RNA sequence: AGGCAGCCCCUUUGCCAAAUAGAGAUGGCUUUAGAGGUGUUGCUUUGCUCGGAAAUUAAUGCUUGGGCUCUUCAGAUUCGCCGAGAAGUUGGGGAUUCUCCUUCUGUUCUCUGACGCGGGUCUAGUAAGCCCACGAACAUU
Numbered sequence: 001a002g003g004c005a006g007c008c009c010c011u012u013u014g015c016c017a018a019a020u021a022g023a024g025a026u027g028g029c030u031u032u033a034g035a036g037g038u039g040u041u042g043c044u045u046u047g048c049u050c051g052g053a054a055a056u057u058a059a060u061g062c063u064u065g066g067g068c069u070c071u072u073c074a075g076a077u078u079c080g081c082c083g084a085g086a087a088g089u090u091g092g093g094g095a096u097u098c099u100c101c102u103u104c105u106g107u108u109c110u111c112u113g114a115c116g117c118g119g120g121u122c123u124a125g126u127a128a129g130c131c132c133a134c135g136a137a138c139a140u141u
Stems, first nucleotide, its partner, number of pairs: 002041004007037002009034001014029004062135001064133001067130003074123005080117002085109003
RNA: Small nucleolar RNA snoR77
Organism: Vanilla planifolia